[Rfam]
RNA: Group II catalytic intron D1-D4-3
RNA sequence: UCUACUGUGAGGUGGAAUCUGAAGGAAGCUGUAAGCGAAUCUCUGGUCCGACGGACAGAAAUCGCAUAUAAGGCUAGGCUUCGAGUGAUAAGCUGGCAAAGAACAGUGAAGUCUAAUAACUACCACGUUUGUAGAAGCAGAGUAAAUGCGGCGGAUAUAUGGAGAGAAAGAGCGUGCA
Numbered sequence: 001u002c003u004a005c006u007g008u009g010a011g012g013u014g015g016a017a018u019c020u021g022a023a024g025g026a027a028g029c030u031g032u033a034a035g036c037g038a039a040u041c042u043c044u045g046g047u048c049c050g051a052c053g054g055a056c057a058g059a060a061a062u063c064g065c066a067u068a069u070a071a072g073g074c075u076a077g078g079c080u081u082c083g084a085g086u087g088a089u090a091a092g093c094u095g096g097c098a099a100a101g102a103a104c105a106g107u108g109a110a111g112u113c114u115a116a117u118a119a120c121u122a123c124c125a126c127g128u129u130u131g132u133a134g135a136a137g138c139a140g141a142g143u144a145a146a147u148g149c150g151g152c153g154g155a156u157a158u159a160u161g162g163a164g165a166g167a168a169a170g171a172g173c174g175u176g177c178a
Base pairs, nucleotide, nucleotide: 001016002015003014004013005012006011030176031175032174036170040165041164042163043162044161045160046156047155048154049153050152062151063150064149065148066147067146073143074142075141078138079137080136081135082134087113088112089111092107093106094105095104
Dot-bracket structure: ((((((....)))))).............(((...(...(((((((((((...........((((((.....(((..(((((....(((..((((........))))...)))....................)))))..)))..)))))))))))...))))))....)...)))..